[Rfam]
RNA sequence: UACACAAGCUGGGGGUGCCUGCAUGAAAAGGCUGAGAUUACACCCUUAAAACCUGAAUCCGGGUAAUACCGGCGGAGGGAAGCUGUUUAUAGAGGUA
Numbered sequence: 001u002a003c004a005c006a007a008g009c010u011g012g013g014g015g016u017g018c019c020u021g022c023a024u025g026a027a028a029a030g031g032c033u034g035a036g037a038u039u040a041c042a043c044c045c046u047u048a049a050a051a052c053c054u055g056a057a058u059c060c061g062g063g064u065a066a067u068a069c070c071g072g073c074g075g076a077g078g079g080a081a082g083c084u085g086u087u088u089a090u091a092g093a094g095g096u097a
Stems, first nucleotide, its partner, number of pairs: 007084004011046004016040001017032004052078003059072004